[Rfam]
RNA: Glycine riboswitch aptamer
RNA sequence: AUCUCCUUUGCGGGAGAGAGAGGCUGGUUGCCUCCGCCGAAGGCGCAAACUCCCAUAAUCGCUCAGGCAUUCAGAACCGCAAAGGCAGU
Numbered sequence: 001a002u003c004u005c006c007u008u009u010g011c012g013g014g015a016g017a018g019a020g021a022g023g024c025u026g027g028u029u030g031c032c033u034c035c036g037c038c039g040a041a042g043g044c045g046c047a048a049a050c051u052c053c054c055a056u057a058a059u060c061g062c063u064c065a066g067g068c069a070u071u072c073a074g075a076a077c078c079g080c081a082a083a084g085g086c087a088g089u
Stems, first nucleotide, its partner, number of pairs: 006084008020034004036068003039064002043062003049056001